[Rfam]
RNA sequence: GACAGAGUAGGUACAGCGCGUCAAGUGCCGCCGGAUGGGAGGUUGCCGGCGGACGAAGGGCCAUGACCGGCCCGCGGUGCUGUGCCGCAUCCGCUGCC
Numbered sequence: 001g002a003c004a005g006a007g008u009a010g011g012u013a014c015a016g017c018g019c020g021u022c023a024a025g026u027g028c029c030g031c032c033g034g035a036u037g038g039g040a041g042g043u044u045g046c047c048g049g050c051g052g053a054c055g056a057a058g059g060g061c062c063a064u065g066a067c068c069g070g071c072c073c074g075c076g077g078u079g080c081u082g083u084g085c086c087g088c089a090u091c092c093g094c095u096g097c098c
Base pairs, nucleotide, nucleotide: 001098003096004095005094010086011085012084013083014082015081016080017079018078019076020075021074025054026053028052029051030050031049032048033047034046038092039091040090042088058073059072060071061070
RNA: THF (Tetrahydrofolate) riboswitch aptamer